[Rfam]
A member of the RNA family "Molybdenum/Tungsten riboswitch aptamer (Moco RNA motif)" from Desulfosporosinus youngiae, 134 nucleotides long. Taxonomically the source falls in Desulfosporosinus youngiae (Bacteria, Bacillota, Clostridia, Eubacteriales).

RNA sequence: UUGAAGAAUGACCUCCGAGCCAGAAUGACCUAAAGAGCAAUUCCAAGGUCACUGGACAGGAUCGCAGAUCCUCAGGGUAUUCCGGGAAACUGGUAUGCCUUCACAGUUUGAAGAGGAGUAGUUCGGGUUAGACU
Numbered sequence: 001u002u003g004a005a006g007a008a009u010g011a012c013c014u015c016c017g018a019g020c021c022a023g024a025a026u027g028a029c030c031u032a033a034a035g036a037g038c039a040a041u042u043c044c045a046a047g048g049u050c051a052c053u054g055g056a057c058a059g060g061a062u063c064g065c066a067g068a069u070c071c072u073c074a075g076g077g078u079a080u081u082c083c084g085g086g087a088a089a090c091u092g093g094u095a096u097g098c099c100u101u102c103a104c105a106g107u108u109u110g111a112a113g114a115g116g117a118g119u120a121g122u123u124c125g126g127g128u129u130a131g132a133c134u
Stems, first nucleotide, its partner, number of pairs: 003128001013118004020055004028049003035043003058072005075100006082093004101111002
Dot-bracket structure: ..(.........((((...((((....(((....(((...)))...)))..))))..(((((.....)))))..((((((.((((....)))).))))))((.......))...)))).........)......